[Rfam]
RNA sequence: AUGUGACUAGCGGACUUCCCUUUGUCAUCCUAUGCCUGGGGUCAUGAAGUGGGGCUGGGAAGGCAAAGGGACGUUCAGCUGUCAUCAUC
Numbered sequence: 001a002u003g004u005g006a007c008u009a010g011c012g013g014a015c016u017u018c019c020c021u022u023u024g025u026c027a028u029c030c031u032a033u034g035c036c037u038g039g040g041g042u043c044a045u046g047a048a049g050u051g052g053g054g055c056u057g058g059g060a061a062g063g064c065a066a067a068g069g070g071a072c073g074u075u076c077a078g079c080u081g082u083c084a085u086c087a088u089c
Stems, first nucleotide, its partner, number of pairs: 017071006024064002028060005034055004
RNA: mir-204 microRNA precursor family